Notes
The record is an 85-nucleotide RNA from Saimiri boliviensis, which matches "mir-643 microRNA precursor family" in Rfam. The base pairs follow the family's consensus structure, which was predicted with RNAalifold. Rfam links the family to the GO terms RISC complex and miRNA-mediated post-transcriptional gene silencing. It scores 88 bits against the family's covariance model. The literature on the family includes a 2009 paper in Comput Biol Chem by Baev et al., "Computational identification of novel microRNA homologs in the chimpanzee genome". The organism belongs to Saimiri boliviensis, within Eukaryota.
RNA sequence: AUACCCGGUAUCUACCUGAGCUAGAAUUCAAGUAGUUGGUGUCUUCAGAGAGACUUGUAUUCUAGCUCAGGUAGAUAUUGAAUGA
Dot-bracket structure: .((..((.((((((((((((((((.((.(((((........(((....))).))))).)).)))))))))))))))).))..)).